[Rfam]
RNA sequence: GGCCACCUUCGGGGGGCUAAACUCCGGCACACCCGAUACGCGGGUGCUGUCGCAUUACAACGGAAGACAGAAA
Numbered sequence: 001g002g003c004c005a006c007c008u009u010c011g012g013g014g015g016g017c018u019a020a021a022c023u024c025c026g027g028c029a030c031a032c033c034c035g036a037u038a039c040g041c042g043g044g045u046g047c048u049g050u051c052g053c054a055u056u057a058c059a060a061c062g063g064a065a066g067a068c069a070g071a072a073a
Base pairs, nucleotide, nucleotide: 001018002017003016004015006014007013008012026051027050028049029048030046031045032044033043034042035041
L2-Alphaproteobacteria ribosomal protein leader: a 73-nucleotide sequence from Salipiger sp. CCB-MM3.
The organism belongs to Salipiger, within Bacteria.
A search with the family's covariance model found it, with a score of 50 bits.
A reference for the family is Eckert and Weinberg (2020), "Discovery of 20 novel ribosomal leader candidates in bacteria and archaea", BMC Microbiol.